RNA: Small nucleolar RNA SNORA11
RNA sequence: AUGGUGUGCUUAGAACAGGGGGCCUGAAGAAAUGGCUCCUCUGUUUACAACACAUCCAGCAGGAAUCUGAGUUCAUUGUGACAAGGAGCACAAAACUUGGGGCUUUCCUGUGAACAAAUAACCCUGCUUGU
Numbered sequence: 001a002u003g004g005u006g007u008g009c010u011u012a013g014a015a016c017a018g019g020g021g022g023c024c025u026g027a028a029g030a031a032a033u034g035g036c037u038c039c040u041c042u043g044u045u046u047a048c049a050a051c052a053c054a055u056c057c058a059g060c061a062g063g064a065a066u067c068u069g070a071g072u073u074c075a076u077u078g079u080g081a082c083a084a085g086g087a088g089c090a091c092a093a094a095a096c097u098u099g100g101g102g103c104u105u106u107c108c109u110g111u112g113a114a115c116a117a118a119u120a121a122c123c124c125u126g127c128u129u130g131u
Base pairs, nucleotide, nucleotide: 003056004055005054006053007052008051013046014045015044016043017042018041019040020039021038022036023035024034071122072121073120077116078115079114082112083111085105086104089101091099092098093097